RNA: Alphaproteobacterial sRNA BjrC1505
RNA sequence: UUUAUCCAAGUUAACCAUUCGUUAAGCAUUACAAUCUAUAAAUAAGUCAUCCAGUUUUCUGGAUUCUUACCAAGUGGUUUGGCCACUUUGUUUGACGCCUCCCUGUUAGACUCCUGAGAGCCGCCUCGUUUUUGCGGCUCUUUUUUU
Numbered sequence: 001u002u003u004a005u006c007c008a009a010g011u012u013a014a015c016c017a018u019u020c021g022u023u024a025a026g027c028a029u030u031a032c033a034a035u036c037u038a039u040a041a042a043u044a045a046g047u048c049a050u051c052c053a054g055u056u057u058u059c060u061g062g063a064u065u066c067u068u069a070c071c072a073a074g075u076g077g078u079u080u081g082g083c084c085a086c087u088u089u090g091u092u093u094g095a096c097g098c099c100u101c102c103c104u105g106u107u108a109g110a111c112u113c114c115u116g117a118g119a120g121c122c123g124c125c126u127c128g129u130u131u132u133u134g135c136g137g138c139u140c141u142u143u144u145u146u147u
Stems, first nucleotide, its partner, number of pairs: 001046004005017001018040001023038002026035001050063004072088006094107004116142009